[Rfam]
RNA sequence: UAGUAUCGGUGAAGAUGCCGAUUACCCGCUGUGGGACGAAAAGACCCCGUGCACCUUUACUAUAGCUUAGUAUUGGUUUUGGAUAAGUAAUGUGUAGGAUAGGUGGGAGACUUUGAAGUGGCGUCGCUAGGCGUUGUGGAGUCAUUGUUGAAAUACCACCCUUUGCUUAUCUAGAGUCUAACCUUCUUAGGAAGGGACAGUGCUUGGUGGGUAGUUUGACUGGGGUGGUCGCCUCCAAAAGAGUAACGGAGGCUUCUAAAGGUUCCCUCAGCACGCUUGGUAACCGUGCGUAGAGUGCAAUGGCAUAAGGGAGCUUGACUGAGAGACCUACAAGUCGAUCAGGUACGAAAGUAGAGCAUAGUGAUCCGGUGGUUCCGCAUGGAAGGGCCAUCGCUCAAAGGAUAAAAGGUACGCCGGGGAUAACAGGCUGAUCUCCCCCAAGAGCUCAUAUCGACGGGGGGGUUUGGCACCUCGAUGUCGGCUCGUCACAUCCUGGGGCUGGAGAAGGUCCCAAGGGUUGGGCUGUUCGCCCAUUAAAGUGGCACGCGAGCUGGGUUCAGAACGUCGUGAGACAGUUCGGUCUCUAUCUACAGUGGGCGU
Number, nucleotide and partner (000 for none) at each position: 001u000002a000003g000004u000005a022006u021007c020008g019009g018010u000011g000012a000013a000014g000015a000016u000017g000018c009019c008020g007021a006022u005023u000024a000025c597026c596027c595028g594029c593030u592031g591032u590033g000034g589035g588036a587037c000038g584039a583040a000041a000042a000043g000044a000045c000046c418047c417048c416049g415050u000051g414052c413053a410054c409055c408056u407057u406058u000059a215060c214061u213062a212063u000064a000065g000066c207067u206068u000069a204070g203071u202072a201073u000074u000075g178076g177077u176078u175079u174080u173081g172082g171083a170084u169085a168086a167087g166088u165089a164090a163091u000092g161093u000094g000095u000096a000097g000098g000099a000100u000101a000102g160103g159104u158105g157106g156107g000108a000109g143110a142111c141112u000113u000114u000115g000116a000117a000118g137119u136120g135121g134122c133123g132124u131125c130126g000127c000128u000129a000130g125131g124132c123133g122134u121135u120136g119137u118138g000139g000140a000141g111142u110143c109144a000145u000146u000147g000148u000149u000150g000151a000152a000153a000154u000155a000156c106157c105158a104159c103160c102161c092162u000163u090164u089165g088166c087167u086168u085169a084170u083171c082172u081173a080174g079175a078176g077177u076178c075179u000180a000181a000182c195183c194184u193185u000186c191187u000188u000189a000190g000191g186192a000193a184194g183195g182196g000197a000198c000199a000200g000201u072202g071203c070204u069205u000206g067207g066208u000209g000210g000211g000212u062213a061214g060215u059216u000217u000218g230219a229220c228221u227222g000223g000224g000225g000226u000227g221228g220229u219230c218231g253232c252233c251234u250235c249236c248237a000238a000239a000240a000241g000242a000243g000244u000245a000246a000247c000248g236249g235250a234251g233252g232253c231254u399255u000256c356257u355258a000259a000260a000261g000262g314263u313264u312265c311266c310267c309268u294269c293270a000271g289272c288273a287274c286275g285276c000277u000278u000279g000280g000281u000282a000283a000284c000285c275286g274287u273288g272289c271290g000291u000292a000293g269294a268295g304296u303297g000298c000299a000300a000301u000302g000303g296304c295305a000306u000307a000308a000309g267310g266311g265312a264313g263314c262315u000316u000317g000318a000319c342320u341321g340322a339323g000324a000325g336326a335327c334328c000329u000330a000331c000332a000333a000334g327335u326336c325337g000338a000339u322340c321341a320342g319343g000344u353345a352346c351347g000348a000349a000350a000351g346352u345353a344354g000355a257356g256357c000358a000359u000360a000361g000362u000363g000364a000365u000366c000367c393368g392369g391370u390371g389372g388373u387374u000375c386376c385377g000378c000379a000380u000381g000382g000383a000384a000385g376386g375387g373388c372389c371390a370391u369392c368393g367394c000395u000396c000397a000398a000399a254400g000401g000402a000403u000404a000405a000406a057407a056408g055409g054410u053411a000412c000413g052414c051415c049416g048417g047418g046419g000420a000421u000422a000423a000424c000425a000426g000427g468428c467429u466430g000431a465432u462433c461434u460435c459436c458437c457438c456439c000440a000441a000442g452443a451444g000445c000446u000447c000448a000449u000450a000451u443452c442453g000454a000455c000456g438457g437458g436459g435460g434461g433462g432463u000464u000465u431466g429467g428468c427469a000470c000471c000472u000473c000474g000475a000476u000477g000478u000479c554480g552481g551482c550483u549484c546485g543486u542487c541488a540489c539490a000491u000492c517493c516494u000495g512496g511497g510498g509499c508500u507501g000502g000503a000504g000505a000506a000507g500508g499509u498510c497511c496512c495513a000514a000515g000516g493517g492518u000519u533520g532521g531522g530523c529524u000525g000526u000527u000528c000529g523530c522531c521532c520533a519534u000535u000536a000537a000538a000539g489540u488541g487542g486543c485544a000545c000546g484547c000548g000549a483550g482551c481552u480553g000554g479555g000556u000557u000558c000559a000560g578561a577562a576563c575564g573565u572566c571567g000568u000569g000570a000571g566572a565573c564574a000575g563576u562577u561578c560579g000580g000581u000582c000583u039584c038585u000586a000587u036588c035589u034590a032591c031592a030593g029594u028595g027596g026597g025598c000599g000600u000